[Rfam]
RNA sequence: AUGACUAGAUGUCAUUUGAGUAUCCUGAAAACGGGCUUUUCAGAGUGGCAUUGUUUAUAAAAUAGUUAGGAGUGCAUAGUGGCCCGUAUAGCAGGCGUUAACAUUCCUGAC
Numbered sequence: 001a002u003g004a005c006u007a008g009a010u011g012u013c014a015u016u017u018g019a020g021u022a023u024c025c026u027g028a029a030a031a032c033g034g035g036c037u038u039u040u041c042a043g044a045g046u047g048g049c050a051u052u053g054u055u056u057a058u059a060a061a062a063u064a065g066u067u068a069g070g071a072g073u074g075c076a077u078a079g080u081g082g083c084c085c086g087u088a089u090a091g092c093a094g095g096c097g098u099u100a101a102c103a104u105u106c107c108u109g110a111c
Stems, first nucleotide, its partner, number of pairs: 004055001006053002009051005024095003032086004040110003
Dot-bracket structure: ...(.((.(((((..........[[[.....[[[[....{{{....))))))).)...........................]]]]......]]]............}}}.